[Rfam]
RNA sequence: GGUACCUUUAAUUCAGUCCCGUGAGGCUGGCAAGGACAGCGGAUAUGUGUGAAGAGCGUAGGGUUACGUCUAUGGAAUGGAAUAGGUGUACCUAUGUCUCUUUGUGCAAAAAGCUUCUUGUCGCUAGACGGCAGGAAGCUUUUUUUGU
Numbered sequence: 001g002g003u004a005c006c007u008u009u010a011a012u013u014c015a016g017u018c019c020c021g022u023g024a025g026g027c028u029g030g031c032a033a034g035g036a037c038a039g040c041g042g043a044u045a046u047g048u049g050u051g052a053a054g055a056g057c058g059u060a061g062g063g064u065u066a067c068g069u070c071u072a073u074g075g076a077a078u079g080g081a082a083u084a085g086g087u088g089u090a091c092c093u094a095u096g097u098c099u100c101u102u103u104g105u106g107c108a109a110a111a112a113g114c115u116u117c118u119u120g121u122c123g124c125u126a127g128a129c130g131g132c133a134g135g136a137a138g139c140u141u142u143u144u145u146u147g148u
Stems, first nucleotide, its partner, number of pairs: 005035004013030006062093002065090009109143014